[Rfam]
RNA sequence: UUCAAAUCUGUUUGUAAGUCGCUUUGGAUAAAAGUGCCUGCCAAAUGAAUAAAU
Number, nucleotide and partner (000 for none) at each position: 001u000002u000003c000004a000005a000006a000007u000008c000009u000010g000011u000012u000013u043014g041015u040016a039017a000018g000019u000020c036021g035022c034023u033024u032025u031026g000027g000028a000029u000030a000031a025032a024033a023034g022035u021036g020037c000038c000039u016040g015041c014042c000043a013044a000045a000046u000047g000048a000049a000050u000051a000052a000053a000054u000
A member of the RNA family "UnaL2 LINE 3' element" from Onychostoma macrolepis, 54 nucleotides long. The match comes from Rfam's covariance-model search (56 bits). By type it is a cis-regulatory element. NCBI's taxonomy places the organism under Eukaryota, Actinopteri, Otophysi, Acrossocheilinae, Onychostoma.